[Rfam]
RNA: permuted transfer-messenger RNA
Nucleotides: 191
Base pairs, nucleotide, nucleotide: 001113002112003111004110005109015102017100026093028091030089031088032087036052037051038050039049040048053074054073055072056071057070058069059068114129115128116127117126
Number, partner (000 for none) and nucleotide at each position: 001113g002112g003111c004110u005109g006000u007000a008000a009000u010000c011000c012000c013000u014000g015102a016000a017100g018000c019000g020000g021000g022000g023000a024000g025000g026093c027000u028091u029000g030089u031088c032087g033000g034000a035000c036052g037051c038050g039049g040048g041000g042000g043000c044000g045000g046000u047000a048040c049039c050038c051037g052036c053074c054073a055072c056071c057070u058069c059068c060000a061000c062000c063000a064000c065000u066000a067000u068059g069058g070057g071056g072055g073054u074053g075000a076000a077000a078000u079000a080000g081000g082000c083000u084000c085000g086000a087032c088031g089030g090000c091028a092000u093026g094000c095000a096000a097000g098000a099000a100017c101000g102015u103000a104000a105000c106000a107000g108000g109005c110004a111003g112002c113001u114129c115128g116127g117126u118000a119000g120000g121000c122000g123000a124000c125000g126117a127116c128115c129114g130000u131000a132000a133000a134000u135000c136000g137000c138000g139000c140000a141000a142000a143000c144000u145000c146000u147000a148000u149000a150000g151000u152000u153000g154000c155000c156000a157000a158000u159000g160000a161000u162000g163000a164000c165000a166000a167000c168000u169000u170000c171000g172000a173000g174000g175000u176000a177000g178000c179000c180000c181000u182000c183000g184000c185000g186000g187000c188000a189000u190000a191000a